[Rfam]
RNA sequence: CACGCACCUCGUUCGGUGAGGCGUCGUCACGGACACAGGCCACUGAUCCCACCCGUCGAGAGACGCUCCGGAUCAGGACAGGUCUCCCCGGCCCAAGGGGUGACUCCAAGUGGCUGCCCCACCCGGGGCUACGCCGUGACGUGCCAAAGCUCUGACGAGUGGGGGUGAGCC
Numbered sequence: 001c002a003c004g005c006a007c008c009u010c011g012u013u014c015g016g017u018g019a020g021g022c023g024u025c026g027u028c029a030c031g032g033a034c035a036c037a038g039g040c041c042a043c044u045g046a047u048c049c050c051a052c053c054c055g056u057c058g059a060g061a062g063a064c065g066c067u068c069c070g071g072a073u074c075a076g077g078a079c080a081g082g083u084c085u086c087c088c089c090g091g092c093c094c095a096a097g098g099g100g101u102g103a104c105u106c107c108a109a110g111u112g113g114c115u116g117c118c119c120c121a122c123c124c125g126g127g128g129c130u131a132c133g134c135c136g137u138g139a140c141g142u143g144c145c146a147a148a149g150c151u152c153u154g155a156c157g158a159g160u161g162g163g164g165g166u167g168a169g170c171c
Stems, first nucleotide, its partner, number of pairs: 005167006011156002013096001015151003020145003025141008039114005045074005054065004081105004087099003116129003
Shown here is a 171-nucleotide RNA sequence from Streptomyces noursei, a member of the family "M-box riboswitch aptamer (ykoK leader)". On this family, see Barrick et al., Proc Natl Acad Sci U S A 2004: "New RNA motifs suggest an expanded scope for riboswitches in bacterial genetic control". The pairing is the family consensus, mapped onto this sequence. NCBI's taxonomy places the organism under Bacteria, Actinomycetota, Kitasatosporales, Streptomycetaceae, Streptomyces.